Annotation
mir-160 microRNA precursor family: an 89-nucleotide RNA sequence from Malus domestica. The source organism's lineage runs through Eukaryota, Streptophyta, Euphyllophyta, Magnoliopsida and Malus. Gene Ontology terms of the family: miRNA-mediated post-transcriptional gene silencing and RISC complex. The family has 7 seed sequences and 1,502 matches in Rfam 15.1. It scores 57 bits against the family's covariance model. The literature on the family includes a 2002 paper in Cell by Rhoades et al., "Prediction of plant microRNA targets". The base pairs follow the family's consensus structure, which was predicted with PFOLD.
[Rfam]
RNA sequence: GUAUGCUUGGCUCCCUGUACGCCACCCAUAGUAGCCAAUCAAGAAAUAGAUUAAGCUUCUGCUUGUGGCAUACAAGGAGCCAGGCAUAA
Dot-bracket structure: .(((((.(((((((.((((.((((....(...............................)....)))).)))).))))))).))))).